[Rfam]
RNA sequence: AUAUUUACGGGAAAUGGUGUUCUUCCUUAUCCAACCGCCCCGAUAGAAAUCGGGACUGAUGACGCCUGAUUAAUU
Number, nucleotide and partner (000 for none) at each position: 001a000002u000003a000004u000005u000006u000007a000008c000009g000010g026011g025012a024013a023014a000015u000016g066017g065018u064019g063020u062021u061022c000023u013024u012025c011026c010027u000028u000029a000030u000031c000032c000033a000034a000035c000036c000037g056038c000039c054040c053041c052042g051043a050044u049045a000046g000047a000048a000049a044050u043051c042052g041053g040054g039055a000056c037057u000058g000059a000060u000061g021062a020063c019064g018065c017066c016067u000068g000069a000070u000071u000072a000073a000074u000075u000
The family of this 75-nucleotide RNA from Paenimyroides marinum is "Fluoride riboswitch aptamer (crcB RNA motif)".
NCBI's taxonomy places the organism under Bacteria, Flavobacteriia, Flavobacteriales, Flavobacteriaceae, Paenimyroides.
A search with the family's covariance model found it, with a score of 44 bits.